Source information:
Rfam assigns this 128-nucleotide RNA sequence from Cricetulus griseus to the family "Small Cajal body specific RNA 4". The organism belongs to Cricetulus, within Eukaryota.

RNA sequence: CUUGGAGUACCAAGAAGUCUUAGUCUGAUGAAGCAAGGCUUUGCUGAUACACUCCUCCUAGACAAAAGGGUGGAGAGAGCAGCCCUUAUCAGAGAAAACCACAGGGCUGACUGUAAUGCCCAACAUUU
Numbered sequence: 001c002u003u004g005g006a007g008u009a010c011c012a013a014g015a016a017g018u019c020u021u022a023g024u025c026u027g028a029u030g031a032a033g034c035a036a037g038g039c040u041u042u043g044c045u046g047a048u049a050c051a052c053u054c055c056u057c058c059u060a061g062a063c064a065a066a067a068g069g070g071u072g073g074a075g076a077g078a079g080c081a082g083c084c085c086u087u088a089u090c091a092g093a094g095a096a097a098a099c100c101a102c103a104g105g106g107c108u109g110a111c112u113g114u115a116a117u118g119c120c121c122a123a124c125a126u127u128u
Stems, first nucleotide, its partner, number of pairs: 002061002004058004009053001017045001019043001022040005068121004078112002080109007092099001
Clan: SCARNA4 clan.
About the family: scaRNAs are a specific class of small nuclear RNAs which localise to the Cajal bodies and guide the modification of RNA polymerase II transcribed spliceosomal RNAs U1, U2, U4, U5 and U12. ACA26 belongs to the H/ACA box class of guide RNAs as it has the predicted hairpin-hinge-hairpin-tail structure, conserved H/ACA-box motifs and is found associated with GAR1.
By type it is a small Cajal body RNA.
It scores 116 bits against the family's covariance model.